[Rfam]
RNA sequence: AACUUUUACAAGGUAUCAGCACUUUUCUUUCAUUGAGGGGAAGGUGUGAAGAAAGUACCAAACAGAAGCAGACUUUAAACUUUAAAUUUUAAACUUUAAAUCGCCAGGUCUGAGUGUCUGAAAUUGCCUUUCAUUUCACUUCAUCCUCCACAGAGUUCCAUCAAUUGGAGUGCCUACUGCACUUCUUUAAAUGAAAGAGUAAGUUAAAAAAA
Numbered sequence: 001a002a003c004u005u006u007u008a009c010a011a012g013g014u015a016u017c018a019g020c021a022c023u024u025u026u027c028u029u030u031c032a033u034u035g036a037g038g039g040g041a042a043g044g045u046g047u048g049a050a051g052a053a054a055g056u057a058c059c060a061a062a063c064a065g066a067a068g069c070a071g072a073c074u075u076u077a078a079a080c081u082u083u084a085a086a087u088u089u090u091a092a093a094c095u096u097u098a099a100a101u102c103g104c105c106a107g108g109u110c111u112g113a114g115u116g117u118c119u120g121a122a123a124u125u126g127c128c129u130u131u132c133a134u135u136u137c138a139c140u141u142c143a144u145c146c147u148c149c150a151c152a153g154a155g156u157u158c159c160a161u162c163a164a165u166u167g168g169a170g171u172g173c174c175u176a177c178u179g180c181a182c183u184u185c186u187u188u189a190a191a192u193g194a195a196a197g198a199g200u201a202a203g204u205u206a207a208a209a210a211a212a
Stems, first nucleotide, its partner, number of pairs: 003019002007015003029155003034150002037147003040142004048135002051132001053131003070111006112127001114125001165208002168205002177197002180193002183190002